[Rfam]
RNA sequence: UAAGUGGUUAAUGAUGAACAUUCUUUCCCCGACUUAUCGACAAUGGUGAAAGAUUAGUUUCACUAGCCAAUAUCCUUCUGAAACCACUAU
Dot-bracket structure: ..(((((((........................................................................)))))))..
Numbered sequence: 001u002a003a004g005u006g007g008u009u010a011a012u013g014a015u016g017a018a019c020a021u022u023c024u025u026u027c028c029c030c031g032a033c034u035u036a037u038c039g040a041c042a043a044u045g046g047u048g049a050a051a052g053a054u055u056a057g058u059u060u061c062a063c064u065a066g067c068c069a070a071u072a073u074c075c076u077u078c079u080g081a082a083a084c085c086a087c088u089a090u
Stems, first nucleotide, its partner, number of pairs: 003088007
This 90-nucleotide RNA sequence from Poecilia reticulata belongs to the Rfam family "Small nucleolar SNORD12/SNORD106". The family is grouped with related families in Rfam's "SNORD12 clan". The base pairs follow the family's consensus structure, which was predicted with RNAalifold.